[Rfam]
Nucleotides: 085
Base pairs, nucleotide, nucleotide: 001085002084003083006080007079008078009077010076011075013073014072015071016070017069018068019067020066023063024062025061026060027059028058029057030056
Number, partner (000 for none) and nucleotide at each position: 001085u002084c003083c004000a005000a006080a007079g008078c009077c010076c011075a012000u013073g014072c015071u016070c017069u018068u019067u020066c021000c022000a023063c024062u025061g026060a027059g028058c029057c030056a031000c032000g033000c034000u035000g036000g037000u038000a039000c040000c041000u042000a043000c044000u045000u046000a047000a048000a049000u050000g051000c052000a053000g054000c055000a056030u057029g058028g059027c060026u061025c062024a063023g064000u065000g066020g067019a068018a069017a070016g071015a072014g073013c074000a075011u076010g077009g078008g079007c080006u081000u082000u083003g084002g085001a